[Rfam]
RNA sequence: GUAUUGUGGGGACCACCUCCAAGAGAGGUGUUAGGCAGUAGCCAGCGCAACGUUAAGCACGUGAGUCUAGACCCCUGCGUGCCCCCUCUUUAGCGACGUUGCAGCCAGCCAUGCCGUUUUUUUCA
Number, nucleotide and partner (000 for none) at each position: 001g000002u000003a000004u000005u000006g117007u116008g115009g114010g110011g109012a000013c000014c030015a029016c028017c027018u026019c025020c000021a000022a000023g000024a000025g019026a018027g017028g016029u015030g014031u000032u000033a000034g043035g042036c041037a000038g000039u000040a000041g036042c035043c034044a000045g105046c104047g000048c101049a100050a099051c098052g097053u096054u095055a000056a000057g082058c081059a080060c000061g000062u079063g078064a000065g076066u000067c000068u000069a000070g000071a000072c000073c000074c000075c000076u065077g000078c063079g062080u059081g058082c057083c000084c000085c000086c000087u000088c000089u000090u000091u000092a000093g000094c000095g054096a053097c052098g051099u050100u049101g048102c000103a000104g046105c045106c000107a000108g000109c011110c010111a000112u000113g000114c009115c008116g007117u006118u000119u000120u000121u000122u000123u000124c000125a000
Shown here is a 125-nucleotide RNA from Trinickia dinghuensis, a member of the family "Burkholderia sRNA 39". Its family is annotated with bacterial biofilm matrix in the Gene Ontology. The literature on the family includes a 2014 paper in BMC Genomics by Stubben et al., "Differential expression of small RNAs from Burkholderia thailandensis in response to varying environmental and stress conditions". Pairs were carried over by alignment from the consensus structure, which was predicted with RNAfold. Rfam describes the family as follows. Trans-encoded, exhibits differential expression profiles dependent on growth phase and cell stimuli, such as antbiotics and serum. May function in bacterial metabolism and adaptation to the host. Shown to be expressed in biotin.